[Rfam]
RNA: mir-9242 microRNA precursor family
RNA sequence: GGCCUCCCUCUGUGGGGUGAUCGAUCUGGAGGCCCUGCAAUCGAUCGCCCCACAGAGGGAGGCC
Numbered sequence: 001g002g003c004c005u006c007c008c009u010c011u012g013u014g015g016g017g018u019g020a021u022c023g024a025u026c027u028g029g030a031g032g033c034c035c036u037g038c039a040a041u042c043g044a045u046c047g048c049c050c051c052a053c054a055g056a057g058g059g060a061g062g063c064c
Stems, first nucleotide, its partner, number of pairs: 001064025029038001031036001